A member of the RNA family "Small nucleolar RNA SNORA71" from Ictidomys tridecemlineatus, 134 nucleotides long. The source organism's lineage runs through Eukaryota, Metazoa, Eumetazoa, Craniata and Ictidomys. Gene Ontology terms of the family: nucleolus and RNA processing. It scores 146 bits against the family's covariance model. For this family Rfam cites "The family of box ACA small nucleolar RNAs is defined by an evolutionarily conserved secondary structure and ubiquitous sequence elements essential for RNA accumulation" (Ganot et al., Genes Dev, 1997). About the family: The members of this family belong to the H/ACA class of snoRNAs which bind a number of proteins (including dyskerin, Gar1p and Nop10p) to form snoRNP complexes. This class of snoRNAs are thought to guide the sites of modification of uridines to pseudouridines by forming direct base pairing interactions with substrate RNAs. This family includes U71 (SNORA71), ACA39 (SNORA39) and ACA60 (SNORA60). U71 and ACA60 are predicted to guide the pseudouridylation of U406 and U1004 in 18S rRNA respectively. Rfam classes the family as an H/ACA-box small nucleolar RNA. Pairs were carried over by alignment from the consensus structure, which was predicted with PFOLD.
[Rfam]
RNA sequence: CCCUGUAUUCGAAAGUGAUCAUGGGCUACCUGUGCCCUGGUCAUUGAUAGUGCAGGGAGAGGAAUUGCUGAAAGCAUUUCCCCGUGUUUGGAGGGUCUGCUUUUGUCCCUUUCGAAUUCUGGAGCUUUUGUACA
Numbered sequence: 001c002c003c004u005g006u007a008u009u010c011g012a013a014a015g016u017g018a019u020c021a022u023g024g025g026c027u028a029c030c031u032g033u034g035c036c037c038u039g040g041u042c043a044u045u046g047a048u049a050g051u052g053c054a055g056g057g058a059g060a061g062g063a064a065u066u067g068c069u070g071a072a073a074g075c076a077u078u079u080c081c082c083c084g085u086g087u088u089u090g091g092a093g094g095g096u097c098u099g100c101u102u103u104u105g106u107c108c109c110u111u112u113c114g115a116a117u118u119c120u121g122g123a124g125c126u127u128u129u130g131u132a133c134a
Stems, first nucleotide, its partner, number of pairs: 001057009014045008023037004067131001069130007086117005091111005